This 107-nucleotide sequence from Ricinus communis belongs to the Rfam family "Small nucleolar RNA Z103". Gene Ontology terms of the family: RNA processing and nucleolus. The match comes from Rfam's covariance-model search (64 bits). Pairs were carried over by alignment from the consensus structure, which was predicted with PFOLD. The family's RNA type in Rfam is C/D-box small nucleolar RNA.

RNA sequence: GUGGAAGUGGUUAUUAUUUCCUUAGAUGAUUGAUGCUGAACAAACUAAGCGUUUUUAUUUCUCUUUUUCUUUAUUAAAAGAGAAUUCAAGCUAGGAAACUGAUCCAU
Numbered sequence: 001g002u003g004g005a006a007g008u009g010g011u012u013a014u015u016a017u018u019u020c021c022u023u024a025g026a027u028g029a030u031u032g033a034u035g036c037u038g039a040a041c042a043a044a045c046u047a048a049g050c051g052u053u054u055u056u057a058u059u060u061c062u063c064u065u066u067u068u069c070u071u072u073a074u075u076a077a078a079a080g081a082g083a084a085u086u087c088a089a090g091c092u093a094g095g096a097a098a099c100u101g102a103u104c105c106a107u
Base pairs, nucleotide, nucleotide: 001107002106003105004104005103